[Rfam]
RNA sequence: GGAUGUGAGGGUGAUCUGGCUGUGACAUCUGUCACCCCAUUGAUUGCCAGGGUUGAUUCGGCUGAUCUGGCUGGCUAGGAGGGCUCCCUUCCUCCCUCACCGCUCCAUGUGCGUCCCUCCUGAAGCUGCGCAAUCAGUCGAAGAGGACGACCUUCUCCUUCCCUCUCUACCUACUGUAGAGACAGUACCGUUCAUCGGUCAAGGGCAUACGAUAGCUGUGCUCCCCUGCUAGAAACUCCAAACAAGUAGUGGUAGUGAAUGGAAUUUUGAACAGGUGGCACUGGCAACUCCUGAACUGGGACUGUUUACUUUU
Dot-bracket structure: (((.(((((((.((...((....(...(((.((.(((((..(((((((...........))).)))))))..))...)).))).).)).))..)))))))...)))........(.(((((((..........))))(.(....((........................)).).)..)))...).............................(.(....(.(.((((......((.(......).))..)))).).)....).).............(.....((((((.......)))..)))......)